Annotation
Shown here is a 158-nucleotide RNA sequence from Blautia sp. OF03-15BH, a member of the family "Clostridiales-1 RNA". The source organism's lineage runs through Bacteria, Bacillati, Bacillota, Clostridia and Blautia. It scores 91 bits against the family's covariance model. Rfam classes the family as a small RNA.
[Rfam]
RNA sequence: AGCUUCGAGAACUCAAAAAGCCGAUUGUGCUUGCACAAAUAGGCUUUUGAGUUUGAGAAGCGCCAGACAGGAAAAAGGAGCGAUUUCCAUCAGGAAAUCUGCGGAUUUUUCCUGGAUGGGAAAAUUGCGGGAGCGGCAUCGCCGCGGAGCAAUUUUCU
Numbered sequence: 001a002g003c004u005u006c007g008a009g010a011a012c013u014c015a016a017a018a019a020g021c022c023g024a025u026u027g028u029g030c031u032u033g034c035a036c037a038a039a040u041a042g043g044c045u046u047u048u049g050a051g052u053u054u055g056a057g058a059a060g061c062g063c064c065a066g067a068c069a070g071g072a073a074a075a076a077g078g079a080g081c082g083a084u085u086u087c088c089a090u091c092a093g094g095a096a097a098u099c100u101g102c103g104g105a106u107u108u109u110u111c112c113u114g115g116a117u118g119g120g121a122a123a124a125u126u127g128c129g130g131g132a133g134c135g136g137c138a139u140c141g142c143c144g145c146g147g148a149g150c151a152a153u154u155u156u157c158u
Stems, first nucleotide, its partner, number of pairs: 003060004009054007017047006024040001025038005063119003068114003073109004080102002082099007122155007133145004